[Rfam]
RNA sequence: GGUAAUAAAUGGACAAUGAAAUAAACCUAUUGGACCCGGGGGCGGUACCCGGCGCCUCCACCAUAAAUCAAAAAUAAUGUUUGCUUUAUGAUGGGGGCGAAAUAGGAUCGACAAGGGCGUAAAGAUUGAUCUUUUACUCGGUAUUGUACCACCGUUAUCGGGCUAACUUAGUAGUUGCAAAUGACAACUAUGCGGAAGCUCGUCUCGCUGCUUAA
Numbered sequence: 001g002g003u004a005a006u007a008a009a010u011g012g013a014c015a016a017u018g019a020a021a022u023a024a025a026c027c028u029a030u031u032g033g034a035c036c037c038g039g040g041g042g043c044g045g046u047a048c049c050c051g052g053c054g055c056c057u058c059c060a061c062c063a064u065a066a067a068u069c070a071a072a073a074a075u076a077a078u079g080u081u082u083g084c085u086u087u088a089u090g091a092u093g094g095g096g097g098c099g100a101a102a103u104a105g106g107a108u109c110g111a112c113a114a115g116g117g118c119g120u121a122a123a124g125a126u127u128g129a130u131c132u133u134u135u136a137c138u139c140g141g142u143a144u145u146g147u148a149c150c151a152c153c154g155u156u157a158u159c160g161g162g163c164u165a166a167c168u169u170a171g172u173a174g175u176u177g178c179a180a181a182u183g184a185c186a187a188c189u190a191u192g193c194g195g196a197a198g199c200u201c202g203u204c205u206c207g208c209u210g211c212u213u214a215a
Stems, first nucleotide, its partner, number of pairs: 001138005014128004026117003030114003036052005053099007139154004

permuted transfer-messenger RNA: a 215-nucleotide RNA sequence from Attibartonella tamiae. Rfam links the family to the GO term RNA catabolic process. The organism belongs to Attibartonella tamiae, within Bacteria. Bacterial tmRNA, also known as 10Sa RNA or SsrA, is named for its dual tRNA and mRNA-like properties. By type it is a non-coding RNA gene.